[Rfam]
RNA sequence: ACCGGAGGACUAAGAAAGUUGAGUCUGUGAAGUAGGGCUCUGCUGAUACAAUCCUCCUAAAGUAAAGAGCUGGAGAGAGCAGCCCUGAGCUCAGAUUAGCCAGGAACUGUCUGUGCCAGGCAACAUUU
Numbered sequence: 001a002c003c004g005g006a007g008g009a010c011u012a013a014g015a016a017a018g019u020u021g022a023g024u025c026u027g028u029g030a031a032g033u034a035g036g037g038c039u040c041u042g043c044u045g046a047u048a049c050a051a052u053c054c055u056c057c058u059a060a061a062g063u064a065a066a067g068a069g070c071u072g073g074a075g076a077g078a079g080c081a082g083c084c085c086u087g088a089g090c091u092c093a094g095a096u097u098a099g100c101c102a103g104g105a106a107c108u109g110u111c112u113g114u115g116c117c118a119g120g121c122a123a124c125a126u127u128u
Stems, first nucleotide, its partner, number of pairs: 004057006017044003021040006067121001078112002080109003085104002092099001